[Rfam]
RNA: Purine riboswitch aptamer
Organism: Heyndrickxia oleronia
RNA sequence: AGUAUAAUAUACAACAUGUCUUGUAUAUGAUCAGGAAUAUGGCCUGUAAGUUUCUACCAAGCUGCCGUAAAUAGCUUGACUACGAGGUUAUGAGAGUAAAUA
Numbered sequence: 001a002g003u004a005u006a007a008u009a010u011a012c013a014a015c016a017u018g019u020c021u022u023g024u025a026u027a028u029g030a031u032c033a034g035g036a037a038u039a040u041g042g043c044c045u046g047u048a049a050g051u052u053u054c055u056a057c058c059a060a061g062c063u064g065c066c067g068u069a070a071a072u073a074g075c076u077u078g079a080c081u082a083c084g085a086g087g088u089u090a091u092g093a094g095a096g097u098a099a100a101u102a
Stems, first nucleotide, its partner, number of pairs: 018088008032046004058078007